[Rfam]
RNA sequence: GGAGCCGCCUCGCGAGGGGCCCCAGUCGAGGAGCCCGCCUCUUCGGCGCUCCUCAUCGUCAUGUUGCUCAAGGAGGAUAUGGCUAUGAGAA
Numbered sequence: 001g002g003a004g005c006c007g008c009c010u011c012g013c014g015a016g017g018g019g020c021c022c023c024a025g026u027c028g029a030g031g032a033g034c035c036c037g038c039c040u041c042u043u044c045g046g047c048g049c050u051c052c053u054c055a056u057c058g059u060c061a062u063g064u065u066g067c068u069c070a071a072g073g074a075g076g077a078u079a080u081g082g083c084u085a086u087g088a089g090a091a
Base pairs, nucleotide, nucleotide: 001023002022004020005019006018008017009016030051032050033049034048036046052089053088054087055086056085059082060081061080062079063078064077065076067075068074069073

Repression of heat shock gene expression (ROSE) element: a 91-nucleotide RNA sequence from Sinorhizobium saheli.
The source organism's lineage runs through Bacteria, Pseudomonadati, Pseudomonadota, Hyphomicrobiales and Sinorhizobium.
From the family's description: This family represents a 5' UTR cis-regulatory element found in heat shock mRNAs and is known as the ROSE (repression of heat shock gene expression) element.
It scores 49 bits against the family's covariance model.
A reference for the family is Nocker et al. (2001), "A mRNA-based thermosensor controls expression of rhizobial heat shock genes", Nucleic Acids Res.
Pairs were carried over by alignment from the consensus structure, which is taken from published work.